[Rfam]
RNA sequence: CAGCGGACGACCGCUGUCGCAGCAUAUAUCACGGGACGACCCGU
Numbered sequence: 001c002a003g004c005g006g007a008c009g010a011c012c013g014c015u016g017u018c019g020c021a022g023c024a025u026a027u028a029u030c031a032c033g034g035g036a037c038g039a040c041c042c043g044u
Stems, first nucleotide, its partner, number of pairs: 001016006031044005